[Rfam]
RNA sequence: AAUAGGGGAACUUAUGCUUAGAACGCCGCGUCGUGCGGCAACGCUUGAGUGACCAACAUCGUGUCGG
Numbered sequence: 001a002a003u004a005g006g007g008g009a010a011c012u013u014a015u016g017c018u019u020a021g022a023a024c025g026c027c028g029c030g031u032c033g034u035g036c037g038g039c040a041a042c043g044c045u046u047g048a049g050u051g052a053c054c055a056a057c058a059u060c061g062u063g064u065c066g067g
Stems, first nucleotide, its partner, number of pairs: 011049004016044002025039005053067002056064002
A member of the RNA family "Bacillaceae-1 RNA" from Solibacillus sp. R5-41, 67 nucleotides long. The organism belongs to Solibacillus, within Bacteria. It scores 57 bits against the family's covariance model.